[Rfam]
RNA sequence: GGGUGCUAUCUGUGAUUGAGGGACAUGGCAAAUAGAAUUGUCUCACACAGAAAUCGCACCCGU
Numbered sequence: 001g002g003g004u005g006c007u008a009u010c011u012g013u014g015a016u017u018g019a020g021g022g023a024c025a026u027g028g029c030a031a032a033u034a035g036a037a038u039u040g041u042c043u044c045a046c047a048c049a050g051a052a053a054u055c056g057c058a059c060c061c062g063u
Stems, first nucleotide, its partner, number of pairs: 001061006009051006017045005
Overview: mir-342 microRNA precursor family: a 63-nucleotide RNA sequence from Canis lupus. NCBI's taxonomy places the organism under Eukaryota, Bilateria, Theria, Canidae, Canis lupus. The literature on the family includes a 2010 paper in Mol Hum Reprod by Ahn et al., "MicroRNA transcriptome in the newborn mouse ovaries determined by massive parallel sequencing".